RNA sequence: GGCCCAAACUUCAAGUAGAUUCGUUUAGUAGGGUCAGCCAAUCCUACUGAUCUACUUUACUUCGAAUUUGGGCCU
Numbered sequence: 001g002g003c004c005c006a007a008a009c010u011u012c013a014a015g016u017a018g019a020u021u022c023g024u025u026u027a028g029u030a031g032g033g034u035c036a037g038c039c040a041a042u043c044c045u046a047c048u049g050a051u052c053u054a055c056u057u058u059a060c061u062u063c064g065a066a067u068u069u070g071g072g073c074c075u
Base pairs, nucleotide, nucleotide: 001074002073003072004071005070006069007068008067011064013062014061015060016059017058018057019056021054023052025050026049027048028047029046030045032043033042034041
RNA: mir-5928 microRNA precursor family
Organism: Haemonchus placei